[Rfam]
Metazoan signal recognition particle RNA: a 296-nucleotide RNA from Taenia asiatica. About the family: The signal recognition particle (SRP) is a universally conserved ribonucleoprotein. It is involved in the co-translational targeting of proteins to membranes. The eukaryotic SRP consists of a 300-nucleotide 7S RNA and six proteins: SRPs 72, 68, 54, 19, 14, and 9. A search with the family's covariance model found it, with a score of 158 bits. On this family, see Wild et al., Curr Opin Struct Biol 2002: "Towards the structure of the mammalian signal recognition particle". Taxonomically the source falls in Taenia (Eukaryota, Protostomia, Cestoda, Eucestoda). By type it is a non-coding RNA gene.
RNA sequence: GCUGGGCGUGGUGGCGUGCGCCUGCAAUCCAGCUACUUAAAGGGCGGGUGGCGGAAGCCGUUGUCGCCGGCAGUUCCACACUGCACCUGCGCAUGUGGAUCGGGCAUCCACGCCAAGCGCGGCGUUGGUAUGGAAAUCAUGCCGGAGGACAGUAGUGUCCAGGUCGUCUAUGGAGGGGUGCAUCGGGCCAGGGGGAAACCCAGCAGCCAAGAGCUCCCACGUGGUGCAGUGGUGGGAUCGCGCCUGUGAAUAGCGGGUGCAGGAUGGCCCGAAGGACGUGCGGUGACCUCCACUCU
Numbered sequence: 001g002c003u004g005g006g007c008g009u010g011g012u013g014g015c016g017u018g019c020g021c022c023u024g025c026a027a028u029c030c031a032g033c034u035a036c037u038u039a040a041a042g043g044g045c046g047g048g049u050g051g052c053g054g055a056a057g058c059c060g061u062u063g064u065c066g067c068c069g070g071c072a073g074u075u076c077c078a079c080a081c082u083g084c085a086c087c088u089g090c091g092c093a094u095g096u097g098g099a100u101c102g103g104g105c106a107u108c109c110a111c112g113c114c115a116a117g118c119g120c121g122g123c124g125u126u127g128g129u130a131u132g133g134a135a136a137u138c139a140u141g142c143c144g145g146a147g148g149a150c151a152g153u154a155g156u157g158u159c160c161a162g163g164u165c166g167u168c169u170a171u172g173g174a175g176g177g178g179u180g181c182a183u184c185g186g187g188c189c190a191g192g193g194g195g196a197a198a199c200c201c202a203g204c205a206g207c208c209a210a211g212a213g214c215u216c217c218c219a220c221g222u223g224g225u226g227c228a229g230u231g232g233u234g235g236g237a238u239c240g241c242g243c244c245u246g247u248g249a250a251u252a253g254c255g256g257g258u259g260c261a262g263g264a265u266g267g268c269c270c271g272a273a274g275g276a277c278g279u280g281c282g283g284u285g286a287c288c289u290c291c292a293c294u295c296u
Stems, first nucleotide, its partner, number of pairs: 002043002004023007028041001046295006053288002057284005064275002068271003076267003081262008093251002096248001101246005107240001108236002111234005117227004122222004126166004131161004136156002139153002141150001143148001167173002175217005186208003193200002
Dot-bracket structure: .(((((((((......)))))))....(............)))..((((((.((..(((((..((..(((.....(((..((((((((....((.(....(((((.(((.(((((.((((.((((((((.((((.((.(((.(....).).)).)).)))).))))((...)).(((((......(((....((....)).....)))....))))).)))).))))..)))))))...).))))).).))...))))))))..))).)))..))....)))))..)).)))))).